[Rfam]
RNA sequence: GGUUGGAAUGGCACUUGCCAUUUUCAAGAGAAACAAGGCUCUGGGGUGGGAGGCU
Numbered sequence: 001g002g003u004u005g006g007a008a009u010g011g012c013a014c015u016u017g018c019c020a021u022u023u024u025c026a027a028g029a030g031a032a033a034c035a036a037g038g039c040u041c042u043g044g045g046g047u048g049g050g051a052g053g054c055u
Stems, first nucleotide, its partner, number of pairs: 003027003006023006036055002039052004

The record is a 55-nucleotide sequence from Dehalobacter sp. 12DCB1, which matches "Na+ riboswitch aptamer (DUF1646)" in Rfam. A search with the family's covariance model found it, with a score of 45 bits. Lineage of the source: Bacteria > Bacillati > Bacillota > Eubacteriales > Dehalobacter. Rfam links the family to the GO terms sodium ion binding and regulation of gene expression. The family's consensus secondary structure is taken from published work. On this family, see White et al., Nat Chem Biol 2022: "Na(+) riboswitches regulate genes for diverse physiological processes in bacteria".